[Rfam]
Shown here is a 72-nucleotide RNA from Blastobotrys ciferrii, a member of the family "tRNA". From the family's description: Transfer RNA (tRNA) molecules are approximately 80 nucleotides in length. Their secondary structure includes four short double-helical elements and three loops (D, anti-codon, and T loops). Further hydrogen bonds mediate the characteristic L-shaped molecular structure. tRNAs have two regions of fundamental functional importance: the anti-codon, which is responsible for specific mRNA codon recognition, and the 3' end, to which the tRNAs corresponding amino acid is attached (by aminoacyl-tRNA synthetases). tRNAs cope with the degeneracy of the genetic code in two manners: having more than one tRNA (with a specific anti-codon) for a particular amino acid; and 'wobble' base-pairing, i.e. permitting non-standard base-pairing at the 3rd anti-codon position. The match comes from Rfam's covariance-model search (58 bits). Taxonomically the source falls in Blastobotrys (Eukaryota, Dikarya, Ascomycota, Dipodascales).
RNA sequence: UCCGAUAUAGUGUAAUGGCUAGCACGGUCCGCUCUCACCGGGCAGAUCGGGGUUCAAUUCCCCGUGUCGGAG
Numbered sequence: 001u002c003c004g005a006u007a008u009a010g011u012g013u014a015a016u017g018g019c020u021a022g023c024a025c026g027g028u029c030c031g032c033u034c035u036c037a038c039c040g041g042g043c044a045g046a047u048c049g050g051g052g053u054u055c056a057a058u059u060c061c062c063c064g065u066g067u068c069g070g071a072g
Stems, first nucleotide, its partner, number of pairs: 001071007010025004027043005048064005